[Rfam]
RNA sequence: CCUCUUCCAUUACAGCGAUCUGAUCCCUAUAUUCGCGCCGUCAGCCUCGUGCUGACUAUGGCGAUAAACGGACGGUGUAAUAAGCCAUUCGGACCCGGGGGCGGUACCCGGCGCCUCCACCAGAAACCGCCGGCUGUGGGCGAAGUGCUCAUGAGGACGGCUUCUGAUGGGGGCGAAAUAGGAUCGACGAGGGUGUAAAGAUCGUACUUUCGCUCGGCAUGGUACCACCGAUAUCGGACCAAACUAGUAGUUGCAAACGACAACUAUGCGGAAGCACGUCUCGCUGCUUAAUGCAGUGCGAUAGCUUCAAAUCAAGCCCUAGGGGUUCGCACUUCUAGGCGGGGUUCGGAGGUACCUGGCAACAGAAACCUCCACU
Numbered sequence: 001c002c003u004c005u006u007c008c009a010u011u012a013c014a015g016c017g018a019u020c021u022g023a024u025c026c027c028u029a030u031a032u033u034c035g036c037g038c039c040g041u042c043a044g045c046c047u048c049g050u051g052c053u054g055a056c057u058a059u060g061g062c063g064a065u066a067a068a069c070g071g072a073c074g075g076u077g078u079a080a081u082a083a084g085c086c087a088u089u090c091g092g093a094c095c096c097g098g099g100g101g102c103g104g105u106a107c108c109c110g111g112c113g114c115c116u117c118c119a120c121c122a123g124a125a126a127c128c129g130c131c132g133g134c135u136g137u138g139g140g141c142g143a144a145g146u147g148c149u150c151a152u153g154a155g156g157a158c159g160g161c162u163u164c165u166g167a168u169g170g171g172g173g174c175g176a177a178a179u180a181g182g183a184u185c186g187a188c189g190a191g192g193g194u195g196u197a198a199a200g201a202u203c204g205u206a207c208u209u210u211c212g213c214u215c216g217g218c219a220u221g222g223u224a225c226c227a228c229c230g231a232u233a234u235c236g237g238a239c240c241a242a243a244c245u246a247g248u249a250g251u252u253g254c255a256a257a258c259g260a261c262a263a264c265u266a267u268g269c270g271g272a273a274g275c276a277c278g279u280c281u282c283g284c285u286g287c288u289u290a291a292u293g294c295a296g297u298g299c300g301a302u303a304g305c306u307u308c309a310a311a312u313c314a315a316g317c318c319c320u321a322g323g324g325g326u327u328c329g330c331a332c333u334u335c336u337a338g339g340c341g342g343g344g345u346u347c348g349g350a351g352g353u354a355c356c357u358g359g360c361a362a363c364a365g366a367a368a369c370c371u372c373c374a375c376u
Stems, first nucleotide, its partner, number of pairs: 040056005060214005070207001072205005085193002089190003095111005112175007215230003220241003225237002342357004348373006
RNA: Alphaproteobacteria transfer-messenger RNA
Organism: Nitratireductor aestuarii